Annotation
Rfam assigns this 168-nucleotide RNA sequence from Streptomyces sp. UH6 to the family "c-di-AMP riboswitch aptamer (ydaO/yuaA leader)". A search with the family's covariance model found it, with a score of 80 bits.

RNA sequence: GGGCAGUCAUCGCCUAAUCCCCGUACGGCGCGAGCCAGGGGAGCCGGGGACCCACCAGCGGUACCCCUGGGGUGAAUCGGGCGCCUUCCGCACCGCGGGAGGAACCUGUAGGAGACCUUCCUGCUCCGAACCCGACAGCUAACCCGGCAGGCGAGAGGGAAGGAAAGG
Numbered sequence: 001g002g003g004c005a006g007u008c009a010u011c012g013c014c015u016a017a018u019c020c021c022c023g024u025a026c027g028g029c030g031c032g033a034g035c036c037a038g039g040g041g042a043g044c045c046g047g048g049g050a051c052c053c054a055c056c057a058g059c060g061g062u063a064c065c066c067c068u069g070g071g072g073u074g075a076a077u078c079g080g081g082c083g084c085c086u087u088c089c090g091c092a093c094c095g096c097g098g099g100a101g102g103a104a105c106c107u108g109u110a111g112g113a114g115a116c117c118u119u120c121c122u123g124c125u126c127c128g129a130a131c132c133c134g135a136c137a138g139c140u141a142a143c144c145c146g147g148c149a150g151g152c153g154a155g156a157g158g159g160a161a162g163g164a165a166a167g168g
Base pairs, nucleotide, nucleotide: 011153012152013151014150018042019041020040021039022038043148044147045146046145047144048143053069054068070133071132072131078108079107080106081105111127112126113125114124

The source organism's lineage runs through Bacteria, Bacillati, Actinomycetota, Actinomycetes and Streptomyces. Rfam links the family to the GO terms regulation of gene expression and cyclic-di-AMP binding.